RNA sequence: GGCGCAUAAUAGGAGACAGACCAAUGGGACUAACGCGAUCUUUGAACGUCCUCAUGAUCUGUGCAGCAUUUGCAUUUGUUGCAGCGUUGAUAGUGGGCGUUAUUCCCUGAUUGGGGAAAGCCCAAGCCAUUAGACAGCAUCGGUUUUGAGGAUGGACCGAUAUGUCUUAAACAAAAGAAAAGCCCGGUUCAAACCGGGCUUUUU
Numbered sequence: 001g002g003c004g005c006a007u008a009a010u011a012g013g014a015g016a017c018a019g020a021c022c023a024a025u026g027g028g029a030c031u032a033a034c035g036c037g038a039u040c041u042u043u044g045a046a047c048g049u050c051c052u053c054a055u056g057a058u059c060u061g062u063g064c065a066g067c068a069u070u071u072g073c074a075u076u077u078g079u080u081g082c083a084g085c086g087u088u089g090a091u092a093g094u095g096g097g098c099g100u101u102a103u104u105c106c107c108u109g110a111u112u113g114g115g116g117a118a119a120g121c122c123c124a125a126g127c128c129a130u131u132a133g134a135c136a137g138c139a140u141c142g143g144u145u146u147u148g149a150g151g152a153u154g155g156a157c158c159g160a161u162a163u164g165u166c167u168u169a170a171a172c173a174a175a176a177g178a179a180a181a182g183c184c185c186g187g188u189u190c191a192a193a194c195c196g197g198g199c200u201u202u203u204u
Stems, first nucleotide, its partner, number of pairs: 015050003026042004177204012
Background: Shown here is a 204-nucleotide sequence from Brucella gallinifaecis, a member of the family "Rhizobiales sRNA Atu_C9". The organism belongs to Brucella, within Bacteria. The literature on the family includes a 2012 paper in RNA Biol by Wilms et al., "Deep sequencing uncovers numerous small RNAs on all four replicons of the plant pathogen Agrobacterium tumefaciens". It is annotated as a small RNA. It scores 54 bits against the family's covariance model.